[Rfam]
The family of this 110-nucleotide RNA sequence from Kribbella solani is "TPP riboswitch aptamer (THI element)". Rfam links the family to the GO term thiamine pyrophosphate binding. Lineage of the source: Bacteria > Bacillati > Actinomycetota > Propionibacteriales > Kribbella. Pairs were carried over by alignment from the consensus structure, which is taken from published work.
RNA sequence: CGAGUUGUCCGCGGGAGCUCGCAGGAAGUGGGCUGAGAGGGUGACUGCCGUCACCGACCGCUGAACCUGAAUCGGGUAAUUCCGGCGUAGGGAGGAAGCGAUGGAGUCCG
Numbered sequence: 001c002g003a004g005u006u007g008u009c010c011g012c013g014g015g016a017g018c019u020c021g022c023a024g025g026a027a028g029u030g031g032g033c034u035g036a037g038a039g040g041g042u043g044a045c046u047g048c049c050g051u052c053a054c055c056g057a058c059c060g061c062u063g064a065a066c067c068u069g070a071a072u073c074g075g076g077u078a079a080u081u082c083c084g085g086c087g088u089a090g091g092g093a094g095g096a097a098g099c100g101a102u103g104g105a106g107u108c109c110g
Base pairs, nucleotide, nucleotide: 006098008096009095010094011061012060013059014058017033018032019031020030021029040055041054042053043052044051066091067090068089069088072085073084074083075082